The family of this 269-nucleotide RNA sequence from Paenibacillus pini is "Bacterial large signal recognition particle RNA". The source organism's lineage runs through Bacteria, Bacillota, Bacilli, Paenibacillaceae and Paenibacillus pini. For this family Rfam cites "Prediction of signal recognition particle RNA genes" (Regalia et al., Nucleic Acids Res, 2002). From the family's description: The signal recognition particle (SRP) is a universally conserved ribonucleoprotein involved in the co-translational targeting of proteins to membranes. The base pairs follow the family's consensus structure, which is taken from published work. It scores 198 bits against the family's covariance model.
RNA sequence: CCGUGCUAGACGGGGAGGUAGCGGUGCCCUGUAACUCGCAAUCCGCUGUAGCGAGGUUGAAUUCCUGUUAGAGGUUUUGCCGAUGUGAGGUCUUGGUCCCUGCGUGCUAUGUUGACGGUUGGGUCCUCCGCAAUGAGUACUUGUGAACCUGGUCAGGUCCGGAAGGAAGCAGCCAUAAGCAAGUUCACUCUUGUGCCGGAGGAUUGCCUAGCCCGAGUAGCGUCGCAGGGCUGCCGCUUGGAUCGCAAUUAUCAAUAACAGGUGUGCGG
Numbered sequence: 001c002c003g004u005g006c007u008a009g010a011c012g013g014g015g016a017g018g019u020a021g022c023g024g025u026g027c028c029c030u031g032u033a034a035c036u037c038g039c040a041a042u043c044c045g046c047u048g049u050a051g052c053g054a055g056g057u058u059g060a061a062u063u064c065c066u067g068u069u070a071g072a073g074g075u076u077u078u079g080c081c082g083a084u085g086u087g088a089g090g091u092c093u094u095g096g097u098c099c100c101u102g103c104g105u106g107c108u109a110u111g112u113u114g115a116c117g118g119u120u121g122g123g124u125c126c127u128c129c130g131c132a133a134u135g136a137g138u139a140c141u142u143g144u145g146a147a148c149c150u151g152g153u154c155a156g157g158u159c160c161g162g163a164a165g166g167a168a169g170c171a172g173c174c175a176u177a178a179g180c181a182a183g184u185u186c187a188c189u190c191u192u193g194u195g196c197c198g199g200a201g202g203a204u205u206g207c208c209u210a211g212c213c214c215g216a217g218u219a220g221c222g223u224c225g226c227a228g229g230g231c232u233g234c235c236g237c238u239u240g241g242a243u244c245g246c247a248a249u250u251a252u253c254a255a256u257a258a259c260a261g262g263u264g265u266g267c268g269g
Base pairs, nucleotide, nucleotide: 001269002268003267004266005265006264009058010057011056012030013029014028015027017025019023035055036054037053038052039051064262065261066260067259068258069257070256073253074252075251081245082244083243084242086240087239088238089237093233098230099229100228101227102226103225106223107222108219109218110217117213118212119211120210121209122208123207124206125202126201127200128199129198130197131193132192135190136189137188138187139184140183141182142181143180144179150175151174152173153172158167159166160165